tRNA: a 75-nucleotide RNA from Phytophthora fragariae. The family's consensus secondary structure is taken from published work. By type it is a transfer RNA.
RNA sequence: CGGAAGGUAGCAUAGUCAGGCUAAUGCAUCUGUUUUGGGAACAGAAGAUCAAAGGUUCAAAUCCUUUUCUUCCGA
Numbered sequence: 001c002g003g004a005a006g007g008u009a010g011c012a013u014a015g016u017c018a019g020g021c022u023a024a025u026g027c028a029u030c031u032g033u034u035u036u037g038g039g040a041a042c043a044g045a046a047g048a049u050c051a052a053a054g055g056u057u058c059a060a061a062u063c064c065u066u067u068u069c070u071u072c073c074g075a
Stems, first nucleotide, its partner, number of pairs: 001074007010027004029045005051067005